[Rfam]
RNA: Fluoride riboswitch aptamer (crcB RNA motif)
Organism: Alkaliphilus sp. B6464
RNA sequence: AUAAUAUAAGGUGAUGGAGUUCACCAUAAUUGCCAAAGGCUAAUGACUCCUACAGAUUC
Dot-bracket structure: .........[[[[..((((((]]]]......(((...)))....)))))).........
Numbered sequence: 001a002u003a004a005u006a007u008a009a010g011g012u013g014a015u016g017g018a019g020u021u022c023a024c025c026a027u028a029a030u031u032g033c034c035a036a037a038g039g040c041u042a043a044u045g046a047c048u049c050c051u052a053c054a055g056a057u058u059c
Stems, first nucleotide, its partner, number of pairs: 010025004016050006032040003